A member of the RNA family "drz-agam-1 ribozyme" from Hermetia illucens, 79 nucleotides long. The family's consensus secondary structure is taken from published work.
[Rfam]
RNA sequence: UACUAUCAAACCCUAUCUCCGCCUCCACGUGGUGACCGCUGGAAAAUCUUUCUUAAGGAAAAGCUGCAGACGGAGAAGG
Numbered sequence: 001u002a003c004u005a006u007c008a009a010a011c012c013c014u015a016u017c018u019c020c021g022c023c024u025c026c027a028c029g030u031g032g033u034g035a036c037c038g039c040u041g042g043a044a045a046a047u048c049u050u051u052c053u054u055a056a057g058g059a060a061a062a063g064c065u066g067c068a069g070a071c072g073g074a075g076a077a078g079g
Base pairs, nucleotide, nucleotide: 012079013078014077016075018073019072021033022032023031045065047063049061050060051059052058053057
The match comes from Rfam's covariance-model search (38 bits). The literature on the family includes a 2009 paper in Science by Webb et al., "Widespread occurrence of self-cleaving ribozymes".